[Rfam]
RNA sequence: CCUCUGGAUCCAGAAGAUCUCACUGAACAGAUCCUUGCAGGUCUGAGUGAAGACUACAAGCCAGAGAUCGAUGCUAUAAAUGGCCAUGACAAUCCGAUCUCCUUUGCUGAGCUCCAUGAACGUCUGCUCAAUCGGGA
Numbered sequence: 001c002c003u004c005u006g007g008a009u010c011c012a013g014a015a016g017a018u019c020u021c022a023c024u025g026a027a028c029a030g031a032u033c034c035u036u037g038c039a040g041g042u043c044u045g046a047g048u049g050a051a052g053a054c055u056a057c058a059a060g061c062c063a064g065a066g067a068u069c070g071a072u073g074c075u076a077u078a079a080a081u082g083g084c085c086a087u088g089a090c091a092a093u094c095c096g097a098u099c100u101c102c103u104u105u106g107c108u109g110a111g112c113u114c115c116a117u118g119a120a121c122g123u124c125u126g127c128u129c130a131a132u133c134g135g136g137a
Stems, first nucleotide, its partner, number of pairs: 004136002007133002088108001090106003
About this RNA
Rfam assigns this 137-nucleotide RNA sequence from Brassica napus to the family "Small nucleolar RNA Z247". Gene Ontology terms of the family: RNA processing and nucleolus. It scores 39 bits against the family's covariance model. Rfam 15.1 lists 7,071 matches to the family in 142 species. Rfam classes the family as a C/D-box small nucleolar RNA.